[Rfam]
RNA sequence: CUGUGGUGAGGUAGUAAGUUGUGUUGUUGUGAGGGGUGGGAUAUUGCGACCCCUAUUUUGGAGAUACAACUAUACAACUUACUGCCUUCCACAG
Numbered sequence: 001c002u003g004u005g006g007u008g009a010g011g012u013a014g015u016a017a018g019u020u021g022u023g024u025u026g027u028u029g030u031g032a033g034g035g036g037u038g039g040g041a042u043a044u045u046g047c048g049a050c051c052c053c054u055a056u057u058u059u060g061g062a063g064a065u066a067c068a069a070c071u072a073u074a075c076a077a078c079u080u081a082c083u084g085c086c087u088u089c090c091a092c093a094g
Stems, first nucleotide, its partner, number of pairs: 001094006008088017026070002032054006056063002

Notes:
The record is a 94-nucleotide RNA from Perca fluviatilis, which matches "let-7 microRNA precursor family" in Rfam. From the family's description: This family represents the microRNAs (miRNA) let-7 and mir-98. let-7 was identified from a study of developmental timing in C. elegans, and was later shown to be part of a much larger class of non-coding RNAs termed miRNAs. Rfam 15.1 lists 8,694 matches to the family in 797 species. A reference for the family is Rougvie (2001), "Control of developmental timing in animals", Nat Rev Genet. Taxonomically the source falls in Perca (Eukaryota, Opisthokonta, Metazoa, Actinopterygii). The match comes from Rfam's covariance-model search (66 bits). Gene Ontology terms of the family: miRNA-mediated post-transcriptional gene silencing and RISC complex.